[Rfam]
RNA: Fluoride riboswitch aptamer (crcB RNA motif)
Organism: Acidiphilium rubrum
RNA sequence: UCUGCCUGCGGCGAUGGAGUUCGCCAUGUAACCGCCCGCGGGGCUGAUGACUCCUGUUCCUUG
Dot-bracket structure: .........[[[[..((((((]]]]........((((...))))....)))))).........